The family of this 73-nucleotide RNA sequence from Flavobacterium rivulicola is "Flavo-1 RNA". Taxonomically the source falls in Flavobacterium (Bacteria, Pseudomonadati, Flavobacteriales, Flavobacteriaceae). Pairs were carried over by alignment from the consensus structure, which is taken from published work.

RNA sequence: UUUUAGCCCGGAUAGGAGCGACAUCCUUUUUUAGUUGAAACUAAAAAAGAUACAGCGGAUAGCCGGAAAUAGC
Dot-bracket structure: ........(((.((...((...(((...(((((((....)))))))..)))...))...)).)))........